[Rfam]
RNA sequence: UCUCAGGCUGUGACCGUCUCGAGGAAAGAAGCACUUUCUGUUGUCUUAAAGCAAAGAAAGUGUUUCUUUCCCGAGGGUUACGGUUUGAGA
Numbered sequence: 001u002c003u004c005a006g007g008c009u010g011u012g013a014c015c016g017u018c019u020c021g022a023g024g025a026a027a028g029a030a031g032c033a034c035u036u037u038c039u040g041u042u043g044u045c046u047u048a049a050a051g052c053a054a055a056g057a058a059a060g061u062g063u064u065u066c067u068u069u070c071c072c073g074a075g076g077g078u079u080a081c082g083g084u085u086u087g088a089g090a
Stems, first nucleotide, its partner, number of pairs: 001090005007084008018075003023071016041055002
A member of the RNA family "mir-515 microRNA precursor family" from Rhinopithecus roxellana, 90 nucleotides long. It scores 81 bits against the family's covariance model. The family is grouped with related families in Rfam's "mir-290 clan". A reference for the family is Bentwich et al. (2005), "Identification of hundreds of conserved and nonconserved human microRNAs", Nat Genet. The family's consensus secondary structure was predicted with RNAalifold.